[Rfam]
RNA sequence: CCACGAGGAAGAACGGCUAAGGUCGCCACGUCCUGUGGCAACGCCGUUCUGACCCACCUCCUGUGGG
Numbered sequence: 001c002c003a004c005g006a007g008g009a010a011g012a013a014c015g016g017c018u019a020a021g022g023u024c025g026c027c028a029c030g031u032c033c034u035g036u037g038g039c040a041a042c043g044c045c046g047u048u049c050u051g052a053c054c055c056a057c058c059u060c061c062u063g064u065g066g067g
Base pairs, nucleotide, nucleotide: 011049012048013047014046015045016044017043025039026038027037028036029035053067054066055065056064057063
Rfam assigns this 67-nucleotide sequence from Peribacillus saganii to the family "Bacillaceae-1 RNA".
The family's consensus secondary structure is taken from published work.